[Rfam]
RNA sequence: GUUGCUUCAUAAUGGUGAACUCCUUAUUACACCCAAGGAUGAUUCAAGUUUCCGGAGCAUAGAUUGAUUUUUUGUAUUAACUCUAGGCUACAUGACAUAGUAGUUUUGAUUUCCUAAUGAAUUU
Number, nucleotide and partner (000 for none) at each position: 001g000002u000003u059004g058005c057006u056007u055008c054009a000010u000011a000012a000013u000014g000015g000016u046017g045018a044019a043020c041021u039022c038023c037024u036025u035026a000027u000028u000029a000030c000031a000032c000033c000034c000035a025036a024037g023038g022039a021040u000041g020042a000043u019044u018045c017046a016047a000048g000049u000050u000051u000052c000053c000054g008055g007056a006057g005058c004059a003060u000061a000062g000063a000064u000065u000066g000067a000068u000069u000070u000071u117072u116073u000074g114075u000076a112077u000078u000079a000080a000081c000082u000083c100084u099085a098086g000087g096088c000089u000090a000091c000092a000093u000094g000095a000096c087097a000098u085099a084100g083101u000102a000103g000104u000105u000106u000107u000108g000109a000110u000111u000112u076113c000114c074115u000116a072117a071118u000119g000120a000121a000122u000123u000124u000

The family of this 124-nucleotide RNA sequence from Coptis chinensis is "small nucleolar RNA snoR137".
A search with the family's covariance model found it, with a score of 50 bits.
Rfam classes the family as an H/ACA-box small nucleolar RNA.
A reference for the family is Chen and Wu (2009), "Mining small RNA sequencing data: a new approach to identify small nucleolar RNAs in Arabidopsis", Nucleic Acids Res.